A member of the RNA family "Salmonella enterica Typhi npcRNA 44" from Serratia sp. DD3, 122 nucleotides long. The family has 34 seed sequences and 474 matches in Rfam 15.1. Taxonomically the source falls in Serratia (Bacteria, Pseudomonadota, Gammaproteobacteria, Yersiniaceae). The match comes from Rfam's covariance-model search (62 bits). The literature on the family includes a 2010 paper in Nucleic Acids Res by Chinni et al., "Experimental identification and characterization of 97 novel npcRNA candidates in Salmonella enterica serovar Typhi".

[Rfam]
RNA sequence: CUUUAACAAUCUGGAACAAGCUGAAAAUUGAAACUUCAGCGCAUCAAUGAGUUAACUGACAUUGAUGGCGUUGAAAGAGUCUCUCAAAUAAUCACAGCCAUAAGGUGUGUAGACAUCUUCGG
Numbered sequence: 001c002u003u004u005a006a007c008a009a010u011c012u013g014g015a016a017c018a019a020g021c022u023g024a025a026a027a028u029u030g031a032a033a034c035u036u037c038a039g040c041g042c043a044u045c046a047a048u049g050a051g052u053u054a055a056c057u058g059a060c061a062u063u064g065a066u067g068g069c070g071u072u073g074a075a076a077g078a079g080u081c082u083c084u085c086a087a088a089u090a091a092u093c094a095c096a097g098c099c100a101u102a103a104g105g106u107g108u109g110u111a112g113a114c115a116u117c118u119u120c121g122g
Stems, first nucleotide, its partner, number of pairs: 020095001023093002027089003034077003037073006102119001104117004